[Rfam]
RNA: U2 spliceosomal RNA
Organism: Artemisia annua
RNA sequence: CAAGCAUACGCCUUUUGGCUAAAAUCAAGCGUAGUAUCUGUUCUUAUCAGUUUAAUAUCUGACAUGUGGACCAUCGGCCCACUUGAUAUUAAUCUUAGUUUUUAUAGGGAAAGGCCCAACACAAUAGCUUGCUAUUGAGGUCUUUGAGGGUUGCCUUGUUGUUGCACUAUUACCUUGGACUAGCGCACCGCUC
Numbered sequence: 001c002a003a004g005c006a007u008a009c010g011c012c013u014u015u016u017g018g019c020u021a022a023a024a025u026c027a028a029g030c031g032u033a034g035u036a037u038c039u040g041u042u043c044u045u046a047u048c049a050g051u052u053u054a055a056u057a058u059c060u061g062a063c064a065u066g067u068g069g070a071c072c073a074u075c076g077g078c079c080c081a082c083u084u085g086a087u088a089u090u091a092a093u094c095u096u097a098g099u100u101u102u103u104a105u106a107g108g109g110a111a112a113g114g115c116c117c118a119a120c121a122c123a124a125u126a127g128c129u130u131g132c133u134a135u136u137g138a139g140g141u142c143u144u145u146g147a148g149g150g151u152u153g154c155c156u157u158g159u160u161g162u163u164g165c166a167c168u169a170u171u172a173c174c175u176u177g178g179a180c181u182a183g184c185g186c187a188c189c190g191c192u193c
Base pairs, nucleotide, nucleotide: 007022010019011018012017045064047062048061049060050059066082067081068080069079071077072076110145111144112143113142114141115140116139124135125134126133127132148186150184151183152182153181155177158174160172